[Rfam]
RNA sequence: UUGCCCUCUUAAGCCUGGCAGUGUCUUAAGUGGCCAACACAGAGGGGUACAAAAAUUCUCUCUAAAACCCAGAGGUGAGGCUGAAACUCUUCUUUGGAGCAUGCUGAGAGGAACAUAC
Numbered sequence: 001u002u003g004c005c006c007u008c009u010u011a012a013g014c015c016u017g018g019c020a021g022u023g024u025c026u027u028a029a030g031u032g033g034c035c036a037a038c039a040c041a042g043a044g045g046g047g048u049a050c051a052a053a054a055a056u057u058c059u060c061u062c063u064a065a066a067a068c069c070c071a072g073a074g075g076u077g078a079g080g081c082u083g084a085a086a087c088u089c090u091u092c093u094u095u096g097g098a099g100c101a102u103g104c105u106g107a108g109a110g111g112a113a114c115a116u117a118c
Base pairs, nucleotide, nucleotide: 002049003048004047005046006045007044009042010041016036017035019030056112058110059109060108061107062106069097070096071095072094073093074092075091077089078088079087